[Rfam]
RNA sequence: GCUGUCGGUCAGUUGCUGCUCAAUGAGUAGAGGAAAGUCCAUGCUUGCACUUGCUGGAACGCAAGUAGUGUUUGUGUAAAUUGAACAAAUAAGAUUUAGGACGCUAAUAGACGUCACGACUGGACUAGUCUAAGGUCUUUGACUAUGAUGAUGUCCGUAAAGUACCACAGAGACGAGCUUAGUGAAAACUAAGUAUGAAACGCGGUAAACUCCACAAGCAAGAAACCUAAAUUUUGGUAAGGGAAUGUUACUUUAAGAAAAAUAAUUAAAGUAAUGACAGGAUUACUGUAGAUAAAUAACUGACUUUAAAACAGAACAUGGCUUAUUGGC
Numbered sequence: 001g002c003u004g005u006c007g008g009u010c011a012g013u014u015g016c017u018g019c020u021c022a023a024u025g026a027g028u029a030g031a032g033g034a035a036a037g038u039c040c041a042u043g044c045u046u047g048c049a050c051u052u053g054c055u056g057g058a059a060c061g062c063a064a065g066u067a068g069u070g071u072u073u074g075u076g077u078a079a080a081u082u083g084a085a086c087a088a089a090u091a092a093g094a095u096u097u098a099g100g101a102c103g104c105u106a107a108u109a110g111a112c113g114u115c116a117c118g119a120c121u122g123g124a125c126u127a128g129u130c131u132a133a134g135g136u137c138u139u140u141g142a143c144u145a146u147g148a149u150g151a152u153g154u155c156c157g158u159a160a161a162g163u164a165c166c167a168c169a170g171a172g173a174c175g176a177g178c179u180u181a182g183u184g185a186a187a188a189c190u191a192a193g194u195a196u197g198a199a200a201c202g203c204g205g206u207a208a209a210c211u212c213c214a215c216a217a218g219c220a221a222g223a224a225a226c227c228u229a230a231a232u233u234u235u236g237g238u239a240a241g242g243g244a245a246u247g248u249u250a251c252u253u254u255a256a257g258a259a260a261a262a263u264a265a266u267u268a269a270a271g272u273a274a275u276g277a278c279a280g281g282a283u284u285a286c287u288g289u290a291g292a293u294a295a296a297u298a299a300c301u302g303a304c305u306u307u308a309a310a311a312c313a314g315a316a317c318a319u320g321g322c323u324u325a326u327u328g329g330c
Stems, first nucleotide, its partner, number of pairs: 004330003007326001008304007016030006035324003039321005044222005049066006072217005077098006099117001100115004105110001118212002121157004129148002134144003162210002164206003177194007226242003246276007277289004
The record is a 330-nucleotide RNA sequence from Mycoplasmoides pneumoniae, which matches "Bacterial RNase P class B" in Rfam. It is annotated as a ribozyme. About the family: Ribonuclease P (RNase P) is a ubiquitous endoribonuclease, found in archaea, bacteria and eukarya as well as chloroplasts and mitochondria. Its best characterised activity is the generation of mature 5'-ends of tRNAs by cleaving the 5'-leader elements of precursor-tRNAs.